Rfam assigns this 171-nucleotide RNA from Holdemania filiformis to the family "Lysine riboswitch aptamer".
A reference for the family is Sudarsan et al. (2003), "An mRNA structure in bacteria that controls gene expression by binding lysine", Genes Dev.
Rfam describes the family as follows. Riboswitches are metabolite binding domains within certain messenger RNAs that serve as precision sensors for their corresponding targets. Allosteric rearrangement of mRNA structure is mediated by ligand binding, and this results in modulation of gene expression. This family includes riboswitches that sense lysine in a number of genes involved in lysine metabolism, including lysC.
RNA sequence: GAAACAUGUAGAGGUAGCGGUGCAGAUGAGUAGGAAUGAGAAGCCGGCAGGCGAUGACUCUUUCAGAAAGGCAACCACCGCCGAAUAACAGACUUUGGCAGAAGUCUGUUAUGGGGCUGCAGGAAAUACCCGCAGCACUCCUUCAUUCAAUGAAGAGGCGCUAUUGCAUAG
Numbered sequence: 001g002a003a004a005c006a007u008g009u010a011g012a013g014g015u016a017g018c019g020g021u022g023c024a025g026a027u028g029a030g031u032a033g034g035a036a037u038g039a040g041a042a043g044c045c046g047g048c049a050g051g052c053g054a055u056g057a058c059u060c061u062u063u064c065a066g067a068a069a070g071g072c073a074a075c076c077a078c079c080g081c082c083g084a085a086u087a088a089c090a091g092a093c094u095u096u097g098g099c100a101g102a103a104g105u106c107u108g109u110u111a112u113g114g115g116g117c118u119g120c121a122g123g124a125a126a127u128a129c130c131c132g133c134a135g136c137a138c139u140c141c142u143u144c145a146u147u148c149a150a151u152g153a154a155g156a157g158g159c160g161c162u163a164u165u166g167c168a169u170a171g
Stems, first nucleotide, its partner, number of pairs: 008164004017081006025072001034064003038060003085112012113139002116136005122130002141155006